[Rfam]
RNA: mir-2807 microRNA precursor family
RNA sequence: UUAACUCAAGUUUGUAUUCAGGUGGAACAGCGCCCCUAGCGGUAAACCUAGGCAAACAUUCCAACUCCAUACAAAUUUGAGUUA
Numbered sequence: 001u002u003a004a005c006u007c008a009a010g011u012u013u014g015u016a017u018u019c020a021g022g023u024g025g026a027a028c029a030g031c032g033c034c035c036c037u038a039g040c041g042g043u044a045a046a047c048c049u050a051g052g053c054a055a056a057c058a059u060u061c062c063a064a065c066u067c068c069a070u071a072c073a074a075a076u077u078u079g080a081g082u083u084a
Stems, first nucleotide, its partner, number of pairs: 008078009020066002023063005034052002039047001